About this RNA: This 119-nucleotide RNA from Durio zibethinus belongs to the Rfam family "mir-399 microRNA precursor family". mir-399 was identified in both Arabidopsis thaliana and Oryza sativa computationally and was later experimentally verified. mir-399 is thought to target mRNAs coding for a phosphatase transporter. The mature sequence is excised from the 3' arm of the hairpin. Pairs were carried over by alignment from the consensus structure, which was predicted with PFOLD.
[Rfam]
RNA sequence: GGAUGCAUUACUGGGCAAAUCUCCCUUGGGAGCAGCUAAACUUGGUUGCAUGUCGAGGCAUGUGGCAGAUAAAAUUAAUUAAGCUCACUGCCAAAGGAGAUUUGCCCCGCAAUUCAGCC
Numbered sequence: 001g002g003a004u005g006c007a008u009u010a011c012u013g014g015g016c017a018a019a020u021c022u023c024c025c026u027u028g029g030g031a032g033c034a035g036c037u038a039a040a041c042u043u044g045g046u047u048g049c050a051u052g053u054c055g056a057g058g059c060a061u062g063u064g065g066c067a068g069a070u071a072a073a074a075u076u077a078a079u080u081a082a083g084c085u086c087a088c089u090g091c092c093a094a095a096g097g098a099g100a101u102u103u104g105c106c107c108c109g110c111a112a113u114u115c116a117g118c119c
Base pairs, nucleotide, nucleotide: 005115007113008112009111011109013107014106015105016104017103018102019101021099022098023097024096027093028092029091031089032088035085